[Rfam]
RNA sequence: AUGUACACCGAGUGGCCAGAUGAUUAUGAUCUCUGAAUGCAUAAUAAUCUGGCCACUCAGUGUAGGU
Numbered sequence: 001a002u003g004u005a006c007a008c009c010g011a012g013u014g015g016c017c018a019g020a021u022g023a024u025u026a027u028g029a030u031c032u033c034u035g036a037a038u039g040c041a042u043a044a045u046a047a048u049c050u051g052g053c054c055a056c057u058c059a060g061u062g063u064a065g066g067u
Base pairs, nucleotide, nucleotide: 004064005063006062007061008060010058011057012056013055014054015053016052017051019049020048021047023045024044025043026042027041028040
Shown here is a 67-nucleotide sequence from Pipistrellus kuhlii, a member of the family "mir-9256 microRNA precursor family".
The organism belongs to Pipistrellus, within Eukaryota.
A search with the family's covariance model found it, with a score of 80 bits.
The family's consensus secondary structure was predicted with RNAalifold.
Gene Ontology terms of the family: miRNA-mediated post-transcriptional gene silencing and RISC complex.